[Rfam]
RNA: raiA RNA
Organism: Clostridium intestinale
RNA sequence: UGAGGCUAGGUUUGUGGUUGAAAGUCGAUGCUAGUCGCAGGCAAAACGAUCCACGUAAGUUAGGCAAAGUUUUAAUGAGCAUGGUGCGGUAUAGAAGUAAGUCCUGCCAGAGAAAAUCUGAGAGUUCCAGUAGUGAGAGGUUAAGUCCGGGUAGCGAAAAAUCCAGCAGGCGAGUGUGGGGUCAAAGACCAGGUCAGCUAGUCUCA
Dot-bracket structure: (((((((((..((((((((........((([..((((((.]........((......(.(.(((.....))).).).....[))))))))............(((((((((.....))))...(.(......((....((......)).....)).....).)..)))))....)))......]..)))))...))))))))))))